ASdes TB sRNA: a 68-nucleotide RNA sequence from Motilibacter rhizosphaerae. A reference for the family is Arnvig and Young (2009), "Identification of small RNAs in Mycobacterium tuberculosis", Mol Microbiol. Lineage of the source: Bacteria > Bacillati > Actinomycetota > Motilibacteraceae > Motilibacter. The family's RNA type in Rfam is small RNA. The family's consensus secondary structure is taken from published work. It scores 74 bits against the family's covariance model.
RNA sequence: AGGGCGUCGGGGUCGACCGCGCGCGUCGCGAGCAGGUAGUCGCGGAUCGCGAUGCCGUGCCGGCCCUC
Numbered sequence: 001a002g003g004g005c006g007u008c009g010g011g012g013u014c015g016a017c018c019g020c021g022c023g024c025g026u027c028g029c030g031a032g033c034a035g036g037u038a039g040u041c042g043c044g045g046a047u048c049g050c051g052a053u054g055c056c057g058u059g060c061c062g063g064c065c066c067u068c
Stems, first nucleotide, its partner, number of pairs: 005062002008059002012029002015027003035056004040052005